[Rfam]
RNA sequence: CGCGUCGGGCGGCAACGCUCGGCGUGAUGGGACAGAAGUCAGCAGAGGGCCUAGUAGCCAAACGCUCACCGUAAUGGGUGGGACAGGGUGAAGGCC
Numbered sequence: 001c002g003c004g005u006c007g008g009g010c011g012g013c014a015a016c017g018c019u020c021g022g023c024g025u026g027a028u029g030g031g032a033c034a035g036a037a038g039u040c041a042g043c044a045g046a047g048g049g050c051c052u053a054g055u056a057g058c059c060a061a062a063c064g065c066u067c068a069c070c071g072u073a074a075u076g077g078g079u080g081g082g083a084c085a086g087g088g089u090g091a092a093g094g095c096c
Stems, first nucleotide, its partner, number of pairs: 001026002004023008039046002048096003057089003069080001
The family of this 96-nucleotide RNA sequence from Thioflavicoccus mobilis is "Group II catalytic intron D1-D4-1". For this family Rfam cites "Control of branch-site choice by a group II intron" (Chu et al., EMBO J, 2001).